This 128-nucleotide sequence from Streptomyces echinatus belongs to the Rfam family "Streptomyces RNA 3920". The literature on the family includes a 2011 paper in RNA Biol by Vockenhuber et al., "Deep sequencing-based identification of small non-coding RNAs in Streptomyces coelicolor". Identified by deep sequencing of transcriptome at the end of exponential growth phase. Sequencing size consistent with northern blot size. Streptomyces specific.
RNA sequence: GAUAGGACUCUGUCGCUACUGUGAUUGGACACUGACACAGAGUCAACUAGCCUUGGUCGCGCGGUCUUUCCCCUGGGAGAAGCUGCAGACGGUCCGAGCCACGAGGGGGGAGGCUCGGACCGUCCCGA
Numbered sequence: 001g002a003u004a005g006g007a008c009u010c011u012g013u014c015g016c017u018a019c020u021g022u023g024a025u026u027g028g029a030c031a032c033u034g035a036c037a038c039a040g041a042g043u044c045a046a047c048u049a050g051c052c053u054u055g056g057u058c059g060c061g062c063g064g065u066c067u068u069u070c071c072c073c074u075g076g077g078a079g080a081a082g083c084u085g086c087a088g089a090c091g092g093u094c095c096g097a098g099c100c101a102c103g104a105g106g107g108g109g110g111a112g113g114c115u116c117g118g119a120c121c122g123u124c125c126c127g128a
Stems, first nucleotide, its partner, number of pairs: 001014005015051004021032003033045004058075002061072001063070002076084002088124013102109001